[Rfam]
Nucleotides: 091
Base pairs, nucleotide, nucleotide: 001091002090003089004088005087006086007085008084009083
Number, partner (000 for none) and nucleotide at each position: 001091g002090c003089u004088g005087g006086u007085g008084u009083a010000g011000c012000u013000g014000a015000u016000g017000a018000c019000u020000a021000a022000a023000u024000u025000u026000u027000u028000u029000c030000c031000c032000c033000a034000u035000c036000a037000g038000a039000g040000c041000g042000a043000c044000a045000g046000u047000g048000u049000u050000g051000a052000u053000a054000a055000c056000u057000c058000a059000c060000u061000g062000u063000u064000u065000a066000a067000g068000c069000c070000a071000g072000a073000u074000c075000a076000u077000g078000u079000c080000u081000g082000a083009u084008g085007c086006a087005c088004c089003a090002g091001c